[Rfam]
RNA: Small nucleolar RNA SNORD60
RNA sequence: AGCCACUGAUGACAAACUCAAUAUUUUCUGACACCUCGUAUGAGAGCUGAAACAGCUCCUGAUUCAGACUCUGCUCUGAGGCUG
Numbered sequence: 001a002g003c004c005a006c007u008g009a010u011g012a013c014a015a016a017c018u019c020a021a022u023a024u025u026u027u028c029u030g031a032c033a034c035c036u037c038g039u040a041u042g043a044g045a046g047c048u049g050a051a052a053c054a055g056c057u058c059c060u061g062a063u064u065c066a067g068a069c070u071c072u073g074c075u076c077u078g079a080g081g082c083u084g
Stems, first nucleotide, its partner, number of pairs: 001083004046056004